[Rfam]
RNA sequence: AAUGAAUGAUGACAAAAUGGUUUGGUCCCAGAGGAUAUAAACUGAUUAUAUCAUUACAUUUAUUCCUGACAUU
Numbered sequence: 001a002a003u004g005a006a007u008g009a010u011g012a013c014a015a016a017a018u019g020g021u022u023u024g025g026u027c028c029c030a031g032a033g034g035a036u037a038u039a040a041a042c043u044g045a046u047u048a049u050a051u052c053a054u055u056a057c058a059u060u061u062a063u064u065c066c067u068g069a070c071a072u073u
Stems, first nucleotide, its partner, number of pairs: 001073004
Shown here is a 73-nucleotide RNA sequence from Fukomys damarensis, a member of the family "Small nucleolar RNA SNORD73". Lineage of the source: Eukaryota > Metazoa > Bilateria > Mammalia > Fukomys. A search with the family's covariance model found it, with a score of 80 bits. Rfam classes the family as a C/D-box small nucleolar RNA.